[Rfam]
This 58-nucleotide RNA sequence from Macleaya cordata belongs to the Rfam family "Plastid-psbA-3 3UTR RNA". The family's consensus secondary structure was predicted with LocARNA. Its Rfam clan is "Plastid-psbA 3UTR RNA clan". The family's RNA type in Rfam is cis-regulatory element. Plastid psbA-3 is a non-coding RNA (ncRNA) present in plastids. It was identified in inverted repeat sequences in the 3 prime untranslate region (3UTR) of photosystem II quinone-binding protein (psbA). The literature on the family includes a 2023 paper in Plant Commun by Richter et al., "Retrograde signaling in plants: A critical review focusing on the GUN pathway and beyond".
RNA sequence: GAAGGAGCAAUAUGGAAUUUCUUGUUCUAUGAAGUGGGUGGGUAUUGCUCCUUCAUUU
Numbered sequence: 001g002a003a004g005g006a007g008c009a010a011u012a013u014g015g016a017a018u019u020u021c022u023u024g025u026u027c028u029a030u031g032a033a034g035u036g037g038g039u040g041g042g043u044a045u046u047g048c049u050c051c052u053u054c055a056u057u058u
Stems, first nucleotide, its partner, number of pairs: 001054013019036001021034003